[Rfam]
RNA sequence: UGGCAGCUCCAGCUGUGAGAACUGAAUUCCAUGGGCUGGUCACGCAGUUUUCUUCCUCAGUCCAUAGUAGUCAGUUCUUCCGUUUGGCUGCUUGAU
Numbered sequence: 001u002g003g004c005a006g007c008u009c010c011a012g013c014u015g016u017g018a019g020a021a022c023u024g025a026a027u028u029c030c031a032u033g034g035g036c037u038g039g040u041c042a043c044g045c046a047g048u049u050u051u052c053u054u055c056c057u058c059a060g061u062c063c064a065u066a067g068u069a070g071u072c073a074g075u076u077c078u079u080c081c082g083u084u085u086g087g088c089u090g091c092u093u094g095a096u
Base pairs, nucleotide, nucleotide: 008087009086011084012083013082018078019077020076021075022074023073024072025071033063034062035061036060037059038058039057

The family of this 96-nucleotide RNA sequence from Callorhinchus milii is "mir-146 microRNA precursor family". Taxonomically the source falls in Callorhinchus (Eukaryota, Eumetazoa, Craniata, Gnathostomata). The sequence is in the family's curated seed alignment. For this family Rfam cites "Kaposi's sarcoma-associated herpesvirus expresses an array of viral microRNAs in latently infected cells" (Cai et al., Proc Natl Acad Sci U S A, 2005). Gene Ontology terms of the family: miRNA-mediated post-transcriptional gene silencing and RISC complex.